SAM riboswitch aptamer (S box leader): a 100-nucleotide RNA from Eshraghiella crossota. The organism belongs to Eshraghiella crossota, within Bacteria. The literature on the family includes a 2016 paper in Nucleic Acids Res by Huang et al., "A critical base pair in k-turns determines the conformational class adopted, and correlates with biological function".
RNA sequence: UGCUUAUUCAGAGUGAUGGAGAUACAUAGGAUCUGUGAAGUCACGGCAACCCCCUUGGCGGAAGGUGCCAACCUGAGCGAAAGUAUUCGAGCAAUAAGUG
Numbered sequence: 001u002g003c004u005u006a007u008u009c010a011g012a013g014u015g016a017u018g019g020a021g022a023u024a025c026a027u028a029g030g031a032u033c034u035g036u037g038a039a040g041u042c043a044c045g046g047c048a049a050c051c052c053c054c055u056u057g058g059c060g061g062a063a064g065g066u067g068c069c070a071a072c073c074u075g076a077g078c079g080a081a082a083g084u085a086u087u088c089g090a091g092c093a094a095u096a097a098g099u100g
Stems, first nucleotide, its partner, number of pairs: 001100008013044005021033003027077001030074001045069004050065002052061002078089004